[Rfam]
RNA sequence: CCCUCCUCAAGGUCUGCUGACGUAAGCUACAGAGAAGUCUGCAUGGCCGUAAAGGGG
Numbered sequence: 001c002c003c004u005c006c007u008c009a010a011g012g013u014c015u016g017c018u019g020a021c022g023u024a025a026g027c028u029a030c031a032g033a034g035a036a037g038u039c040u041g042c043a044u045g046g047c048c049g050u051a052a053a054g055g056g057g
Base pairs, nucleotide, nucleotide: 001057002056003055004054009050011048012047015043016042019039020038021037022030023029